Nucleotides: 068
Base pairs, nucleotide, nucleotide: 001068002067003066004065006064007062008061009060010059011058012057013056014055015054016053019050021048022047023046024045025044026043027042
Number, partner (000 for none) and nucleotide at each position: 001068c002067u003066g004065u005000g006064g007062u008061g009060c010059a011058u012057u013056g014055u015054a016053g017000u018000u019050g020000c021048a022047u023046u024045g025044c026043a027042u028000g029000a030000u031000c032000c033000u034000g035000a036000a037000c038000c039000u040000g041000a042027g043026u044025g045024c046023a047022a048021u049000g050019u051000a052000u053016c054015u055014g056013c057012a058011g059010u060009g061008c062007a063000g064006c065004a066003c067002a068001g